[Rfam]
RNA sequence: GAGUAUCACUAGGGGUGCCACCAUGGUUUGGUGGCUGAGAUCACACCCUCCGAACCUGACGCGGUUUGCACCGCCGCAGGAAAGUGAGCCUGUCGUGAU
Numbered sequence: 001g002a003g004u005a006u007c008a009c010u011a012g013g014g015g016u017g018c019c020a021c022c023a024u025g026g027u028u029u030g031g032u033g034g035c036u037g038a039g040a041u042c043a044c045a046c047c048c049u050c051c052g053a054a055c056c057u058g059a060c061g062c063g064g065u066u067u068g069c070a071c072c073g074c075c076g077c078a079g080g081a082a083a084g085u086g087a088g089c090c091u092g093u094c095g096u097g098a099u
Stems, first nucleotide, its partner, number of pairs: 006087005011049004016043001017035007055080004061074004
TPP riboswitch aptamer (THI element): a 99-nucleotide RNA from Candidatus Synechococcus spongiarum. Its family is annotated with thiamine pyrophosphate binding in the Gene Ontology. Vitamin B(1) in its active form thiamin pyrophosphate (TPP) is an essential coenzyme that is synthesised by coupling of pyrimidine and thiazole moieties in bacteria. The previously detected thiamin-regulatory element, thi box was extended, resulting in a new, highly conserved RNA secondary structure, the THI element, which is widely distributed in eubacteria and also occurs in some archaea. Analysis of operon structures identified a large number of new candidate thiamin-regulated genes, mostly transporters, in various prokaryotic organisms. The THI element is a riboswitch that directly binds to TPP to regulate gene expression through a variety of mechanisms in archaea, bacteria and eukaryotes. through a variety of mechanisms in archaea, bacteria and eukaryotes. The family has 115 seed sequences and 16,130 matches in Rfam 15.1.